Metazoan signal recognition particle RNA: a 299-nucleotide RNA from Caenorhabditis briggsae.
It is annotated as a non-coding RNA gene.
It is one of the family's seed sequences.
Rfam 15.1 lists 383,523 matches to the family in 1,221 species.
Its family is annotated with signal recognition particle, endoplasmic reticulum targeting and SRP-dependent cotranslational protein targeting to membrane, signal sequence recognition in the Gene Ontology.
Lineage of the source: Eukaryota > Opisthokonta > Eumetazoa > Rhabditoidea > Caenorhabditis.

RNA sequence: ACCGGGUGUCGUGGCGGGCGCCUGUGAGUCAGCUUCUUGACGGUAGACAAGUGUGGAUGGAGUGAAGGGAGGAGUCCUGUGGGUGUUGUCGGCAACGGCGACCGAGCGUCCGUGCCAAGCGCUGCGUCGCCAGGGGUCUCCGGUCGGAAGGCUGGCGGUCCCGGGCGCAUAAGGAGUGGUGCACGGCUCAGGGCCGAAAGGCAGCAGGCAAAAGCCACCGCGCGGUGCAGUGGCCGGAUAGCGCUUGUGAGUUGUCGCUCGCCCACAGCCUCUCUGAUACCUUCAGACCACUUGUCAUU
Numbered sequence: 001a002c003c004g005g006g007u008g009u010c011g012u013g014g015c016g017g018g019c020g021c022c023u024g025u026g027a028g029u030c031a032g033c034u035u036c037u038u039g040a041c042g043g044u045a046g047a048c049a050a051g052u053g054u055g056g057a058u059g060g061a062g063u064g065a066a067g068g069g070a071g072g073a074g075u076c077c078u079g080u081g082g083g084u085g086u087u088g089u090c091g092g093c094a095a096c097g098g099c100g101a102c103c104g105a106g107c108g109u110c111c112g113u114g115c116c117a118a119g120c121g122c123u124g125c126g127u128c129g130c131c132a133g134g135g136g137u138c139u140c141c142g143g144u145c146g147g148a149a150g151g152c153u154g155g156c157g158g159u160c161c162c163g164g165g166c167g168c169a170u171a172a173g174g175a176g177u178g179g180u181g182c183a184c185g186g187c188u189c190a191g192g193g194c195c196g197a198a199a200g201g202c203a204g205c206a207g208g209c210a211a212a213a214g215c216c217a218c219c220g221c222g223c224g225g226u227g228c229a230g231u232g233g234c235c236g237g238a239u240a241g242c243g244c245u246u247g248u249g250a251g252u253u254g255u256c257g258c259u260c261g262c263c264c265a266c267a268g269c270c271u272c273u274c275u276g277a278u279a280c281c282u283u284c285a286g287a288c289c290a291c292u293u294g295u296c297a298u299u
Base pairs, nucleotide, nucleotide: 001044002043003042004023005022006021007020008019009018010017028041029040030039046296047295048294049293050292051291052290053289058285059284060283061282062281066275067274068273069272070271071270072269077268078267079266080265081264082263083262084261088258089257092255093254094253095252096251103247104246105245106244107243108242109241110237111236114234115233116232117231119228120227121226122225123224124223125222126221127220128167129166130165131164133162134161135160136159137158138157140155141154142153143152144151145150168174176218177217178216179215180214186209187208188207193202194201195200